[Rfam]
RNA sequence: UAAUAUAAAAGAAAAGGAAGCCUUGCGCUAACAAGACUUCCCGUGUAGAGCCGUAUAAGACGGUGGCAUUAAUUAACGAUUGAACA
Number, nucleotide and partner (000 for none) at each position: 001u000002a000003a000004u000005a000006u000007a000008a000009a000010a000011g000012a000013a000014a000015a000016g000017g000018a000019a000020g000021c000022c035023u034024u033025g032026c000027g000028c000029u000030a000031a000032c025033a024034a023035g022036a000037c000038u000039u000040c000041c000042c000043g000044u000045g000046u000047a000048g000049a000050g064051c063052c062053g061054u060055a000056u000057a000058a000059g000060a054061c053062g052063g051064u050065g000066g000067c000068a000069u000070u000071a000072a000073u000074u000075a000076a000077c000078g000079a000080u000081u000082g000083a000084a000085c000086a000
RNA: RNA anti-toxin A